[Rfam]
RNA sequence: GGAUGGUCUGAGUGCAGUGGUGUUUACAACUAAUUGGUCACAAACAGUUACAGAUUUUUUUGCUGCUUCUCCACUCCCAUUGUUCACUUGACUAGCUUAAA
Numbered sequence: 001g002g003a004u005g006g007u008c009u010g011a012g013u014g015c016a017g018u019g020g021u022g023u024u025u026a027c028a029a030c031u032a033a034u035u036g037g038u039c040a041c042a043a044a045c046a047g048u049u050a051c052a053g054a055u056u057u058u059u060u061u062g063c064u065g066c067u068u069c070u071c072c073a074c075u076c077c078c079a080u081u082g083u084u085c086a087c088u089u090g091a092c093u094a095g096c097u098u099a100a101a
Stems, first nucleotide, its partner, number of pairs: 001097002004094005010089002014085001016081005022076001028064001030062001032060002

Y RNA: a 101-nucleotide sequence from Propithecus coquereli.
Y RNAs are components of the Ro ribonucleoprotein particle (Ro RNP), in association with Ro60 and La proteins. The Y RNAs and Ro60 and La proteins are well conserved, but the function of the Ro RNP is not known. In humans the RNA component can be one of four small RNAs -- hY1, hY3, hY4 and hY5. These small RNAs are predicted to fold into a conserved secondary structure containing three stem structures. The largest of the four, hY1, contains an additional hairpin. This family includes a significant number of annotated pseudogenes and the model is expected to discriminate poorly between real and Y RNA related pseudogenes.
The source organism's lineage runs through Eukaryota, Teleostomi, Sarcopterygii, Mammalia and Propithecus.
Rfam classes the family as a non-coding RNA gene.